chrB-a RNA: an 82-nucleotide sequence from Pseudooceanicola lipolyticus.
Taxonomically the source falls in Pseudooceanicola (Bacteria, Pseudomonadati, Pseudomonadota, Paracoccaceae).
Rfam classes the family as a cis-regulatory element.

[Rfam]
RNA sequence: GCCAUGGGGACGACCGCGAACGCCCCGUGAGGCGUCAGCUCAAGGUUCGCAUGUUUGCCUUGCCAGAGGAGACAUGCCCAUG
Numbered sequence: 001g002c003c004a005u006g007g008g009g010a011c012g013a014c015c016g017c018g019a020a021c022g023c024c025c026c027g028u029g030a031g032g033c034g035u036c037a038g039c040u041c042a043a044g045g046u047u048c049g050c051a052u053g054u055u056u057g058c059c060u061u062g063c064c065a066g067a068g069g070a071g072a073c074a075u076g077c078c079c080a081u082g
Stems, first nucleotide, its partner, number of pairs: 005027005049077006